[Rfam]
RNA sequence: UCUUACCACUAGGGGCGCUCGUUAGGGCUGAGAUAGAGUAUAGACUUUAGUCCCUUCUACCUGAUCUAGAUAAUACUAGCGUAGGGAAGUGGCUUUUGAUUAGU
Numbered sequence: 001u002c003u004u005a006c007c008a009c010u011a012g013g014g015g016c017g018c019u020c021g022u023u024a025g026g027g028c029u030g031a032g033a034u035a036g037a038g039u040a041u042a043g044a045c046u047u048u049a050g051u052c053c054c055u056u057c058u059a060c061c062u063g064a065u066c067u068a069g070a071u072a073a074u075a076c077u078a079g080c081g082u083a084g085g086g087a088a089g090u091g092g093c094u095u096u097u098g099a100u101u102a103g104u
Stems, first nucleotide, its partner, number of pairs: 006092005011055004017028004035048005060085004066079004
RNA: TPP riboswitch aptamer (THI element)
Organism: Halobacteroides halobius